Source information:
The record is a 172-nucleotide RNA sequence from Azotobacter vinelandii, which matches "Group II catalytic intron D1-D4-3" in Rfam. Gene Ontology term of the family: Group II intron splicing. The organism belongs to Azotobacter vinelandii, within Bacteria. The base pairs follow the family's consensus structure. On this family, see Bonen and Vogel, Trends Genet 2001: "The ins and outs of group II introns".
RNA sequence: GUGAGGGCGACCGAGCGUGGGGAGGAAGCGCGGAGCGUAAAUCGUGAGCCGAUGAACAAGAACCGCAUAGAAGGCGCUGCCGAGCAGGGCAAGCGGGCCAGUAACCGCGAAGCUCUUGUGACCAAGGCGAGGUGGCGUAGAUGCGGCGGUUGUGCGGUGAAGGAGUGCGUUC
Numbered sequence: 001g002u003g004a005g006g007g008c009g010a011c012c013g014a015g016c017g018u019g020g021g022g023a024g025g026a027a028g029c030g031c032g033g034a035g036c037g038u039a040a041a042u043c044g045u046g047a048g049c050c051g052a053u054g055a056a057c058a059a060g061a062a063c064c065g066c067a068u069a070g071a072a073g074g075c076g077c078u079g080c081c082g083a084g085c086a087g088g089g090c091a092a093g094c095g096g097g098c099c100a101g102u103a104a105c106c107g108c109g110a111a112g113c114u115c116u117u118g119u120g121a122c123c124a125a126g127g128c129g130a131g132g133u134g135g136c137g138u139a140g141a142u143g144c145g146g147c148g149g150u151u152g153u154g155c156g157g158u159g160a161a162g163g164a165g166u167g168c169g170u171u172c
Stems, first nucleotide, its partner, number of pairs: 001016002005012002028172001030170003036163001041158006047151005063146006074138003078134001080132002084128002087115004093108004